A member of the RNA family "Small nucleolar RNA SNORD24" from Papaver nudicaule, 84 nucleotides long. It scores 61 bits against the family's covariance model. Rfam links the family to the GO terms RNA processing and nucleolus. Pairs were carried over by alignment from the consensus structure, which was predicted with PFOLD. The family has 14 seed sequences and 2,843 matches in Rfam 15.1. Lineage of the source: Eukaryota > Streptophyta > Magnoliopsida > Papaveroideae > Papaver. It is annotated as a C/D-box small nucleolar RNA.
[Rfam]
RNA sequence: AGCCGGUGAUGUAAGGAUAAUAUUUGCUACUCUUAAUGGGUUUAUCCCAUACGAGGAUUAUUUUCCACCAAGAUCUCUGAGGCU
Numbered sequence: 001a002g003c004c005g006g007u008g009a010u011g012u013a014a015g016g017a018u019a020a021u022a023u024u025u026g027c028u029a030c031u032c033u034u035a036a037u038g039g040g041u042u043u044a045u046c047c048c049a050u051a052c053g054a055g056g057a058u059u060a061u062u063u064u065c066c067a068c069c070a071a072g073a074u075c076u077c078u079g080a081g082g083c084u
Base pairs, nucleotide, nucleotide: 001084002083003082004081